About this RNA:
This 329-nucleotide sequence from Apteryx australis belongs to the Rfam family "Small Cajal body-specific RNA 7". The literature on the family includes a 2002 paper in EMBO J by Darzacq et al., "Cajal body-specific small nuclear RNAs: a novel class of 2'-O-methylation and pseudouridylation guide RNAs". The base pairs follow the family's consensus structure. The match comes from Rfam's covariance-model search (202 bits). The family's RNA type in Rfam is small Cajal body RNA.
[Rfam]
RNA sequence: UGGAAGUGAUGAAAUAGAGAUAAUUGGAUGUCUCUCUGAAUGGAGUGUGUAUGGUAAAUAUAAUUUGAAUUGAAUCAGACUUUUUGGGGGGAGGGGGAAGCACGUGCGUGUGUGUGUGUAUGUGGGGUAUAUAAAAGGCUGUAAACUGGGGGCACUGAUAAUGAAGUGCUGAUUCCGGAGUGCAUCUGAGGCAUGUUGUUAAAUUCUGGGGUGUUGCUUUUCAACAUUGCCGAUGAUUAGAGCCCAAAACAAGCUCACCAGACAAGCCUAGGCAUCUUAAAAAUCUCUAACAGGUUCAUUAAUGAAAAUGAUCCUGUGAUCUGAUCCAA
Number, nucleotide and partner (000 for none) at each position: 001u328002g327003g326004a325005a000006g000007u000008g000009a000010u000011g000012a000013a000014a000015u000016a000017g000018a000019g000020a000021u000022a000023a000024u000025u000026g000027g000028a000029u000030g000031u000032c000033u000034c000035u000036c000037u000038g000039a000040a000041u000042g000043g000044a000045g000046u000047g000048u000049g000050u000051a000052u000053g000054g000055u000056a000057a000058a000059u000060a000061u000062a000063a000064u000065u000066u000067g000068a000069a000070u000071u000072g000073a000074a000075u000076c000077a000078g000079a000080c000081u000082u000083u000084u000085u000086g000087g000088g000089g000090g000091g000092a000093g000094g000095g000096g000097g000098a000099a000100g000101c000102a000103c000104g000105u000106g000107c000108g000109u000110g000111u000112g000113u000114g000115u000116g000117u000118g000119u000120a000121u000122g000123u000124g000125g000126g000127g000128u000129a000130u000131a000132u000133a000134a000135a000136a000137g000138g000139c000140u000141g000142u000143a000144a000145a000146c000147u000148g000149g000150g000151g000152g000153c000154a000155c000156u000157g000158a000159u000160a000161a000162u000163g000164a000165a000166g000167u000168g000169c000170u000171g000172a000173u000174u000175c000176c000177g000178g000179a000180g000181u000182g000183c000184a000185u000186c000187u000188g000189a000190g000191g000192c000193a000194u226195g225196u224197u223198g222199u000200u000201a000202a215203a214204u213205u000206c210207u000208g000209g000210g206211g000212u000213g204214u203215u202216g000217c000218u000219u000220u000221u000222c198223a197224a196225c195226a194227u000228u000229g000230c000231c000232g000233a000234u000235g000236a000237u000238u000239a000240g000241a000242g000243c000244c000245c000246a000247a000248a000249a000250c000251a000252a000253g000254c000255u000256c000257a000258c000259c000260a000261g000262a000263c000264a000265a000266g000267c000268c000269u000270a000271g000272g000273c000274a000275u000276c000277u000278u000279a000280a000281a000282a000283a000284u000285c000286u000287c000288u000289a000290a000291c000292a000293g000294g000295u000296u000297c000298a000299u000300u000301a000302a000303u000304g000305a000306a000307a000308a000309u000310g000311a000312u000313c000314c000315u000316g000317u000318g000319a000320u000321c000322u000323g000324a000325u004326c003327c002328a001329a000